RNA sequence: CGAUUGGAUAGCACUUUUAAAGUGCGAAAUCGUCUGCAAUCCGGACAACACCACGCACUGGUGUGACGACCGUUCAACUGCCGCAGUCUUGCGGCUUCAAU
Numbered sequence: 001c002g003a004u005u006g007g008a009u010a011g012c013a014c015u016u017u018u019a020a021a022g023u024g025c026g027a028a029a030u031c032g033u034c035u036g037c038a039a040u041c042c043g044g045a046c047a048a049c050a051c052c053a054c055g056c057a058c059u060g061g062u063g064u065g066a067c068g069a070c071c072g073u074u075c076a077a078c079u080g081c082c083g084c085a086g087u088c089u090u091g092c093g094g095c096u097u098c099a100a101u
Base pairs, nucleotide, nucleotide: 011025012024013023014022015021030069031068032067033066034065049063050062051061052060053059080095081094082093083092084091

Shown here is a 101-nucleotide sequence, a member of the family "DUF3577 RNA". It is one of the family's seed sequences. The base pairs follow the family's consensus structure, which is taken from published work.